[Rfam]
RNA sequence: CGCAUAUUUUGCGCAGGCGGAGCUCGACCGCCGACCGAAGACAUGAUUGCGUUCAUCGACGCGGAGAAAGAUGCGCACGGGGUCGAGCCGAUCUGCAGGGUUCUGCCGAUCGCCCCG
Numbered sequence: 001c002g003c004a005u006a007u008u009u010u011g012c013g014c015a016g017g018c019g020g021a022g023c024u025c026g027a028c029c030g031c032c033g034a035c036c037g038a039a040g041a042c043a044u045g046a047u048u049g050c051g052u053u054c055a056u057c058g059a060c061g062c063g064g065a066g067a068a069a070g071a072u073g074c075g076c077a078c079g080g081g082g083u084c085g086a087g088c089c090g091a092u093c094u095g096c097a098g099g100g101u102u103c104u105g106c107c108g109a110u111c112g113c114c115c116c117g
Stems, first nucleotide, its partner, number of pairs: 016032005078117005089112002092109002095106004
Shown here is a 117-nucleotide RNA sequence from Rubrimonas cliftonensis, a member of the family "ALIL pseudoknot". Its family is annotated with positive regulation of translational frameshifting in the Gene Ontology. It is annotated as a cis-regulatory element. The family's consensus secondary structure is taken from published work.